The record is a 120-nucleotide sequence from Mucilaginibacter terrigena, which matches "SAM riboswitch aptamer (S box leader)" in Rfam. NCBI's taxonomy places the organism under Bacteria, Sphingobacteriia, Sphingobacteriales, Sphingobacteriaceae, Mucilaginibacter.
RNA sequence: UACUUAUCCAGAAAGACAGAGGGAAAGGCCCUAUGAUGUCUUAGCAACCUGUACGGCUUUUAAGCUUGUGUAAGGUGCUAAUUCCUGCUUCGCUGCACACUAUGCGGAGACAGAUAAGCU
Numbered sequence: 001u002a003c004u005u006a007u008c009c010a011g012a013a014a015g016a017c018a019g020a021g022g023g024a025a026a027g028g029c030c031c032u033a034u035g036a037u038g039u040c041u042u043a044g045c046a047a048c049c050u051g052u053a054c055g056g057c058u059u060u061u062a063a064g065c066u067u068g069u070g071u072a073a074g075g076u077g078c079u080a081a082u083u084c085c086u087g088c089u090u091c092g093c094u095g096c097a098c099a100c101u102a103u104g105c106g107g108a109g110a111c112a113g114a115u116a117a118g119c120u
Stems, first nucleotide, its partner, number of pairs: 003118006013042005021031003026086003043079004048075002051071006083112001088109006
Dot-bracket structure: ..((((((....(((((...(((..[[[)))......)))))((((.((.((((((.........))))))..))))))...(]]].((((((..........))))))..)))))))..